[Rfam]
RNA sequence: AGAGCUUGUUAGGCAGUCGCUGUUUCGCAUCCUUUAUUGGGCGCGAGAUGGAGGAAAGUCCGGGCUCCACAGGGCAAAGUGCCAGGUAACGCCUGGGCGGCGCGAGUCGACGGAAAGUGCAACAGAAAGUAUACCGCCUAAGUCUGCUUCGGCAGACCGGUAAGGUUGAAAUGGUGCGGUAAGAGCGCACCGCAUGGCUGGUAACAGUCCAUGGCGAUGGAAAACCCCACUCGGAGCAAGACCAAAUAGGGACCCAAUGGCGUGGCCCACGCUGGGUCCGGGUAGGUCGCUAGAGGUGCAUGGCGACAUGCAUCCCAGAUGAAUGACUGUCCACGACAGAACCCGGCUUACAGACAAGCUCUUCUU
Numbered sequence: 001a002g003a004g005c006u007u008g009u010u011a012g013g014c015a016g017u018c019g020c021u022g023u024u025u026c027g028c029a030u031c032c033u034u035u036a037u038u039g040g041g042c043g044c045g046a047g048a049u050g051g052a053g054g055a056a057a058g059u060c061c062g063g064g065c066u067c068c069a070c071a072g073g074g075c076a077a078a079g080u081g082c083c084a085g086g087u088a089a090c091g092c093c094u095g096g097g098c099g100g101c102g103c104g105a106g107u108c109g110a111c112g113g114a115a116a117g118u119g120c121a122a123c124a125g126a127a128a129g130u131a132u133a134c135c136g137c138c139u140a141a142g143u144c145u146g147c148u149u150c151g152g153c154a155g156a157c158c159g160g161u162a163a164g165g166u167u168g169a170a171a172u173g174g175u176g177c178g179g180u181a182a183g184a185g186c187g188c189a190c191c192g193c194a195u196g197g198c199u200g201g202u203a204a205c206a207g208u209c210c211a212u213g214g215c216g217a218u219g220g221a222a223a224a225c226c227c228c229a230c231u232c233g234g235a236g237c238a239a240g241a242c243c244a245a246a247u248a249g250g251g252a253c254c255c256a257a258u259g260g261c262g263u264g265g266c267c268c269a270c271g272c273u274g275g276g277u278c279c280g281g282g283u284a285g286g287u288c289g290c291u292a293g294a295g296g297u298g299c300a301u302g303g304c305g306a307c308a309u310g311c312a313u314c315c316c317a318g319a320u321g322a323a324u325g326a327c328u329g330u331c332c333a334c335g336a337c338a339g340a341a342c343c344c345g346g347c348u349u350a351c352a353g354a355c356a357a358g359c360u361c362u363u364c365u366u
Stems, first nucleotide, its partner, number of pairs: 001362010012331007020051009056349003060346005065236004072268004078231004082096005097111001098109004112227002117225002120220001134165002136161003142157006173191006192215001193213005198207003240288004250279006259273005295314008